[Rfam]
RNA: DUF3800-IX RNA
RNA sequence: UUCCCGCGUCCCGAACUGUCGCCGUAUGGCGUGCGUGUCCCGGUUCCGCCGGGACUAGGGGCCGGGAAGGCA
Numbered sequence: 001u002u003c004c005c006g007c008g009u010c011c012c013g014a015a016c017u018g019u020c021g022c023c024g025u026a027u028g029g030c031g032u033g034c035g036u037g038u039c040c041c042g043g044u045u046c047c048g049c050c051g052g053g054a055c056u057a058g059g060g061g062c063c064g065g066g067a068a069g070g071c072a
Stems, first nucleotide, its partner, number of pairs: 001068006010060003017035003020031004037055005
Dot-bracket structure: ((((((...(((....(((((((....)))).))).(((((.........)))))..)))..))))))....